Nucleotides: 089
Base pairs, nucleotide, nucleotide: 001017002016003015004014005013006012022044023043024042025041026040027039028038045059046058047057048056
Number, partner (000 for none) and nucleotide at each position: 001017u002016u003015u004014g005013g006012c007000a008000c009000a010000a011000a012006g013005c014004c015003a016002a017001a018000g019000a020000c021000u022044u023043a024042u025041g026040c027039g028038g029000a030000g031000a032000u033000a034000c035000c036000a037000a038028c039027c040026g041025c042024g043023u044022a045059c046058c047057u048056a049000g050000g051000a052000g053000a054000a055000c056048u057047a058046g059045g060000a061000u062000u063000g064000g065000a066000c067000u068000c069000c070000u071000u072000u073000a074000a075000a076000g077000g078000a079000g080000a081000a082000a083000a084000c085000a086000a087000a088000u089000g